Shown here is an 87-nucleotide RNA, a member of the family "GA-cis RNA". The family's consensus secondary structure is taken from published work.

[Rfam]
RNA sequence: GAGAAGAGGUGCAACAUGAACGAAGUGAAUGUUUUUGAAUGCACCGACCGAAUUGCCACCGAACCAUGUGAGGGGGCGUUACCGAAA
Dot-bracket structure: .......((((((.(((..(.....)..)))........)))))).........(((.((..((...))..)).)))..........
Numbered sequence: 001g002a003g004a005a006g007a008g009g010u011g012c013a014a015c016a017u018g019a020a021c022g023a024a025g026u027g028a029a030u031g032u033u034u035u036u037g038a039a040u041g042c043a044c045c046g047a048c049c050g051a052a053u054u055g056c057c058a059c060c061g062a063a064c065c066a067u068g069u070g071a072g073g074g075g076g077c078g079u080u081a082c083c084g085a086a087a
Stems, first nucleotide, its partner, number of pairs: 008045006015031003020026001055077003059073002063069002